[Rfam]
RNA sequence: AAUUUAAUUAAGAGGCAACUCUUAACUGGCCAAUUAAGGAAAAACCGAGAGGUUCAAGCUUAAAGGGCAGAAAGUGAACUAGUAGCGCUAGAUAGUCAUCGGGAAGGCUGGCGGUAGCGCUAAAACGACGAGCCAA
Numbered sequence: 001a002a003u004u005u006a007a008u009u010a011a012g013a014g015g016c017a018a019c020u021c022u023u024a025a026c027u028g029g030c031c032a033a034u035u036a037a038g039g040a041a042a043a044a045c046c047g048a049g050a051g052g053u054u055c056a057a058g059c060u061u062a063a064a065g066g067g068c069a070g071a072a073a074g075u076g077a078a079c080u081a082g083u084a085g086c087g088c089u090a091g092a093u094a095g096u097c098a099u100c101g102g103g104a105a106g107g108c109u110g111g112c113g114g115u116a117g118c119g120c121u122a123a124a125a126c127g128a129c130g131a132g133c134c135a136a
Base pairs, nucleotide, nucleotide: 008025009024010023011022012021013020014019026070027069028068030067031066034063035062036061037060038059043054044053045052046051074099075098076097077096085120086119087118088117089116106134107133108132109131110129112127113126
Overview
The family of this 136-nucleotide sequence is "IMES-2 RNA motif". It is one of the family's seed sequences. The literature on the family includes a 2009 paper in Nature by Weinberg et al., "Exceptional structured noncoding RNAs revealed by bacterial metagenome analysis". The base pairs follow the family's consensus structure, which is taken from published work. It is annotated as a non-coding RNA gene.